[Rfam]
RNA: FMN riboswitch aptamer (RFN element)
RNA sequence: ACAGUUCUUCGGGGUCAGUGAAAAUCUGAACCGGCGGUUAUAGUCCGCGACCCGACUGGGAACAUCGCAACCAGCGAUGAGACUCCAGGCGGUUGACUUGGUGGAAAUCCAAGACCGACGGUUAAAGUCCGGAUGAGAGAAGAACUAG
Numbered sequence: 001a002c003a004g005u006u007c008u009u010c011g012g013g014g015u016c017a018g019u020g021a022a023a024a025u026c027u028g029a030a031c032c033g034g035c036g037g038u039u040a041u042a043g044u045c046c047g048c049g050a051c052c053c054g055a056c057u058g059g060g061a062a063c064a065u066c067g068c069a070a071c072c073a074g075c076g077a078u079g080a081g082a083c084u085c086c087a088g089g090c091g092g093u094u095g096a097c098u099u100g101g102u103g104g105a106a107a108u109c110c111a112a113g114a115c116c117g118a119c120g121g122u123u124a125a126a127g128u129c130c131g132g133a134u135g136a137g138a139g140a141a142g143a144a145c146u147a148g
Stems, first nucleotide, its partner, number of pairs: 003146008016028003030128002032117002034048004043115002052092002097113005119131003